[Rfam]
RNA sequence: CGAAAAACCAGCGUCGAAGUGCGCUGGUGGAGACUACUUGUGACUGUCAAUACCGUGCAGGGGGCGGUAAGGGUGACGCGUUGCGUCUGAGGACCGGGGGACGGUGGUAAAAACUAUCAAUUCCCUGCAACCAAUGUGACCGGAUUCUAGCAGGGUUUUAUAGAUCGUCAACACUAUAAAACCGCGAAUUUAUAACCAAUUGUAA
Dot-bracket structure: .......(((((((......)))))))................(((((..(((((.........))))).....(((((...)))))...............)))))...........................(((...(((..((((...........)))))))...)))................................
Annotation
A member of the RNA family "Burkholderia sRNA Bp1_Cand738_SIPHT" from Paraburkholderia diazotrophica, 205 nucleotides long. The family's consensus secondary structure was predicted with RNAalifold. The organism belongs to Paraburkholderia, within Bacteria. A reference for the family is Khoo et al. (2012), "Computational discovery and RT-PCR validation of novel Burkholderia conserved and Burkholderia pseudomallei unique sRNAs", BMC Genomics.